[Rfam]
RNA: mir-9229 microRNA precursor family
Organism: Cnephaeus nilssonii
RNA sequence: GAGAUAACUCUCUGGGGCAAGACUUGCUACAGUGGGGCUUUGGUGCUCACAGAGUCUGCCCCUUGGGUGUGUCACU
Number, nucleotide and partner (000 for none) at each position: 001g075002a000003g073004a072005u071006a070007a000008c000009u067010c066011u065012c000013u000014g062015g061016g060017g059018c058019a057020a000021g056022a055023c054024u000025u000026g000027c000028u000029a000030c052031a000032g050033u049034g048035g047036g046037g044038c043039u000040u000041u000042g000043g038044u037045g000046c036047u035048c034049a033050c032051a000052g030053a000054g023055u022056c021057u019058g018059c017060c016061c015062c014063u000064u000065g011066g010067g009068u000069g000070u006071g005072u004073c003074a000075c001076u000